[Rfam]
RNA sequence: CAAGUUGAUAGAGGCGCGAAGCAAAAGAAGGAUCAGAGAGUCGGCAGGCAGAGACCUGAUCUGGAGGUACCCUUCGCCGAACCGAAGCCGCCAGGCAUGGGACUUCGGUGGGCAUGCAGUUAAUAGCUGUAUGACUGUCUGCUUUGGAAUACCAGAGCAGGUGAGCUAUCCUUAUA
Numbered sequence: 001c002a003a004g005u006u007g008a009u010a011g012a013g014g015c016g017c018g019a020a021g022c023a024a025a026a027g028a029a030g031g032a033u034c035a036g037a038g039a040g041u042c043g044g045c046a047g048g049c050a051g052a053g054a055c056c057u058g059a060u061c062u063g064g065a066g067g068u069a070c071c072c073u074u075c076g077c078c079g080a081a082c083c084g085a086a087g088c089c090g091c092c093a094g095g096c097a098u099g100g101g102a103c104u105u106c107g108g109u110g111g112g113c114a115u116g117c118a119g120u121u122a123a124u125a126g127c128u129g130u131a132u133g134a135c136u137g138u139c140u141g142c143u144u145u146g147g148a149a150u151a152c153c154a155g156a157g158c159a160g161g162u163g164a165g166c167u168a169u170c171c172u173u174a175u176a
Stems, first nucleotide, its partner, number of pairs: 007170005016077006024068001030062007081109007089101001091099001110136002113133008138161007

Lysine riboswitch aptamer: a 176-nucleotide RNA from Zhenpiania hominis. Rfam describes the family as follows. Riboswitches are metabolite binding domains within certain messenger RNAs that serve as precision sensors for their corresponding targets. Allosteric rearrangement of mRNA structure is mediated by ligand binding, and this results in modulation of gene expression. This family includes riboswitches that sense lysine in a number of genes involved in lysine metabolism, including lysC. NCBI's taxonomy places the organism under Bacteria, Bacillati, Bacillota, Peptostreptococcales, Zhenpiania. The family's consensus secondary structure is taken from published work.